[Rfam]
RNA: mir-590 microRNA precursor family
Organism: Trichechus manatus
RNA sequence: AGCCAAUCAGAAAUGAGCUUAUUCAUAAAAGUACAGCAUAAUCCAGUAAACCUGUAAUUUUAUUUAUAAGCUAGUCUCUGCUUGAA
Numbered sequence: 001a002g003c004c005a006a007u008c009a010g011a012a013a014u015g016a017g018c019u020u021a022u023u024c025a026u027a028a029a030a031g032u033a034c035a036g037c038a039u040a041a042u043c044c045a046g047u048a049a050a051c052c053u054g055u056a057a058u059u060u061u062a063u064u065u066a067u068a069a070g071c072u073a074g075u076c077u078c079u080g081c082u083u084g085a086a
Stems, first nucleotide, its partner, number of pairs: 004084003008080004013075002016072007025063006032056005
Dot-bracket structure: ...(((.((((.((.(((((((..((((((.(((((...............))))).))))))..))))))).)).)))).)))..